The record is a 78-nucleotide RNA sequence from Sphaeramia orbicularis, which matches "mir-130 microRNA precursor family" in Rfam. The base pairs follow the family's consensus structure, which was predicted with PFOLD. A reference for the family is Lagos-Quintana et al. (2002), "Identification of tissue-specific microRNAs from mouse", Curr Biol. Taxonomically the source falls in Sphaeramia (Eukaryota, Deuterostomia, Teleostomi, Teleostei).

RNA sequence: UGUUGUCCAAAGCCCUUUUUCUGUUGUACUACUGUGAAAUAGUAUGAGCAGUGCAAUAUUAAAGGGCAUUGGCUGACA
Number, nucleotide and partner (000 for none) at each position: 001u078002g077003u076004u000005g073006u000007c072008c071009a070010a069011a000012g067013c066014c065015c064016u063017u062018u000019u061020u000021c000022u058023g057024u056025u055026g054027u053028a052029c051030u050031a000032c000033u000034g000035u000036g000037a000038a000039a000040u000041a000042g000043u000044a000045u000046g000047a000048g000049c000050a030051g029052u028053g027054c026055a025056a024057u023058a022059u000060u000061a019062a017063a016064g015065g014066g013067c012068a000069u010070u009071g008072g007073c005074u000075g000076a003077c002078a001